[Rfam]
Lysine riboswitch aptamer: a 161-nucleotide sequence from Oceanirhabdus seepicola.
RNA sequence: AUGUGAUACAGAGGCCGCGGUUAUUAACAGUACUAUUUUUUUAUAGGAAAGGGAUAACCGCCGAAGUGCAGAGAAGUUUAAAUGCAUUGGGGCUAUGUUGAAUAAACAUAGUACUGUCUUUAGUUAAUGGCCCGAUUUUCUAAAGGAGUGCUGUUUCAUGU
Dot-bracket structure: .....(.((((.....(((((((((.......((((......))))......)))))))))...((((((............))))))((.((((((((.....)))))))).)).(((((((................)))))))....)))).).....

Its family is annotated with lysine biosynthetic process in the Gene Ontology. Taxonomically the source falls in Oceanirhabdus (Bacteria, Bacillati, Clostridia, Eubacteriales).